A member of the RNA family "SAM riboswitch aptamer (S box leader)" from Acetobacterium bakii, 97 nucleotides long. The family's consensus secondary structure is taken from published work. Gene Ontology term of the family: regulation of gene expression.
RNA sequence: UACCUAUCCAGAGAGGUGGAGGGACAGGCCCUAUGAAACCCGGCAACCAGCGAAAGCAUGGUGCCAAUACCGGCGAAUAUUUUCGCAAUGAUGGGGU
Numbered sequence: 001u002a003c004c005u006a007u008c009c010a011g012a013g014a015g016g017u018g019g020a021g022g023g024a025c026a027g028g029c030c031c032u033a034u035g036a037a038a039c040c041c042g043g044c045a046a047c048c049a050g051c052g053a054a055a056g057c058a059u060g061g062u063g064c065c066a067a068u069a070c071c072g073g074c075g076a077a078u079a080u081u082u083u084c085g086c087a088a089u090g091a092u093g094g095g096g097u
Base pairs, nucleotide, nucleotide: 003095004094005093006092007091008090013041015040016039017038021031022030023029025072027071028070042065043064044063045062047061048060050057051056069089073086074085075084076083077082
The match comes from Rfam's covariance-model search (74 bits).